[Rfam]
RNA sequence: GGACAUAAACGCGCUCGUAAUAAGCGGCUCGGACCCGGGGGCGGUACCCGGCGGCUCCACCAUAUACUCCCUUGUUGGGGGAGCAUGGGGCCGAAACAGGAUCGACGAACGUCUAAAGGGGUUAUGCUUUGUCCCGGUGAGGUACCACCGUUAUCGGUCCGAAAUGUACAGUUGCCAACAACAACCGUGCUCCGGCAAUGGCUCUGGCUGCGUAA
Numbered sequence: 001g002g003a004c005a006u007a008a009a010c011g012c013g014c015u016c017g018u019a020a021u022a023a024g025c026g027g028c029u030c031g032g033a034c035c036c037g038g039g040g041g042c043g044g045u046a047c048c049c050g051g052c053g054g055c056u057c058c059a060c061c062a063u064a065u066a067c068u069c070c071c072u073u074g075u076u077g078g079g080g081g082a083g084c085a086u087g088g089g090g091c092c093g094a095a096a097c098a099g100g101a102u103c104g105a106c107g108a109a110c111g112u113c114u115a116a117a118g119g120g121g122u123u124a125u126g127c128u129u130u131g132u133c134c135c136g137g138u139g140a141g142g143u144a145c146c147a148c149c150g151u152u153a154u155c156g157g158u159c160c161g162a163a164a165u166g167u168a169c170a171g172u173u174g175c176c177a178a179c180a181a182c183a184a185c186c187g188u189g190c191u192c193c194g195g196c197a198a199u200g201g202c203u204c205u206g207g208c209u210g211c212g213u214a215a
Stems, first nucleotide, its partner, number of pairs: 001134005013122004025111002029108003035051005052093007135150004
permuted transfer-messenger RNA: a 215-nucleotide sequence from Frigidibacter albus. Rfam's curators write: Bacterial tmRNA, also known as 10Sa RNA or SsrA, is named for its dual tRNA and mRNA-like properties. Its role is to liberate the mRNA from a stalled ribosome. The source organism's lineage runs through Bacteria, Pseudomonadota, Alphaproteobacteria, Rhodobacterales and Frigidibacter. On this family, see Mao et al., RNA Biol 2010: "Variations on the tmRNA gene". The family's consensus secondary structure is taken from published work.